[Rfam]
RNA sequence: CCAAAGGCUCUUUUCAGAGCCACACACAUUUCUACAAAGAGCCUG
Numbered sequence: 001c002c003a004a005a006g007g008c009u010c011u012u013u014u015c016a017g018a019g020c021c022a023c024a025c026a027c028a029u030u031u032c033u034a035c036a037a038a039g040a041g042c043c044u045g
Stems, first nucleotide, its partner, number of pairs: 006021006
Rfam assigns this 45-nucleotide RNA sequence from Ornithorhynchus anatinus to the family "Histone 3' UTR stem-loop". Rfam describes the family as follows. The mRNAs of metazoan histone genes lack a poly-A tail. 3' end processing occurs at a site between a highly conserved stem-loop (modelled by this family) and a purine rich region around 20 nts downstream (the histone downstream element, or HDE). The stem-loop is bound by a 31 kDa stem-loop binding protein (SLBP - also termed the histone hairpin binding protein, or HBP). Together with U7 snRNA binding of the HDE, SLBP binding nucleate s the formation of the processing complex. The family's RNA type in Rfam is cis-regulatory element.